Small nucleolar RNA SNORA81: a 181-nucleotide RNA sequence. Pairs were carried over by alignment from the consensus structure, which was predicted with WAR. Rfam links the family to the GO terms nucleolus and RNA processing. It is one of the family's seed sequences.
[Rfam]
RNA sequence: ACCUUCUUGUCAAAGCACUGUGCUAAAAUUACAGAAGCUGAGGCUGAGCUUUGGGUUCUGUAAUAAUGCUAGUAGAGUACACGCAAGAAGAAGAAAAAGGAUGCUCUGGAUCGAAAAUGACCGGGGUGGACCUCUUUCUUAAUGUCCGUUGUCCUGUGUCAGAAGAUCCGGUGCAACAGUU
Dot-bracket structure: .................((.(((((..((((..((..(((((((...)))))))..)).....))))..))))).))........................(((.(((((............(.(.((((..............)))).).)..............))))).)))......